The record is a 44-nucleotide RNA from Nocardioides kongjuensis, which matches "L31-Actinobacteria ribosomal protein leader" in Rfam. The family's RNA type in Rfam is cis-regulatory leader. Taxonomically the source falls in Nocardioides (Bacteria, Bacillati, Actinomycetota, Propionibacteriales). It scores 40 bits against the family's covariance model. The family's consensus secondary structure is taken from published work.
RNA sequence: UUGGCUCCGGUUCACGCCCCACAACCCGUGGUGCGACCCGGACC
Numbered sequence: 001u002u003g004g005c006u007c008c009g010g011u012u013c014a015c016g017c018c019c020c021a022c023a024a025c026c027c028g029u030g031g032u033g034c035g036a037c038c039c040g041g042a043c044c
Stems, first nucleotide, its partner, number of pairs: 003044002007041004015035003019031004